[Rfam]
RNA: glmS glucosamine-6-phosphate activated ribozyme aptamer
Organism: Pelosinus sp. UFO1
RNA sequence: UAUGGUGUAAUAGCGCUGGAGCUUGCUUAUCAUUAUUCACAUUUUAGUGGUAUCCUUUAGUAAGGGAUAUUCAAGCAAGCAGACGAGGAAGAGGUUUAUCGAAAAUUCAGCGGAUACCUCUCGGCUACUCUGCGGCCGCCAAACAGCGACAAAACUGUAGGGCAACUUACAGGACAAAACGUCUGAGGCAGAUUU
Numbered sequence: 001u002a003u004g005g006u007g008u009a010a011u012a013g014c015g016c017u018g019g020a021g022c023u024u025g026c027u028u029a030u031c032a033u034u035a036u037u038c039a040c041a042u043u044u045u046a047g048u049g050g051u052a053u054c055c056u057u058u059a060g061u062a063a064g065g066g067a068u069a070u071u072c073a074a075g076c077a078a079g080c081a082g083a084c085g086a087g088g089a090a091g092a093g094g095u096u097u098a099u100c101g102a103a104a105a106u107u108c109a110g111c112g113g114a115u116a117c118c119u120c121u122c123g124g125c126u127a128c129u130c131u132g133c134g135g136c137c138g139c140c141a142a143a144c145a146g147c148g149a150c151a152a153a154a155c156u157g158u159a160g161g162g163c164a165a166c167u168u169a170c171a172g173g174a175c176a177a178a179a180c181g182u183c184u185g186a187g188g189c190a191g192a193u194u195u
Stems, first nucleotide, its partner, number of pairs: 021080007090121005099110001101108002122138005144185003147181001155172007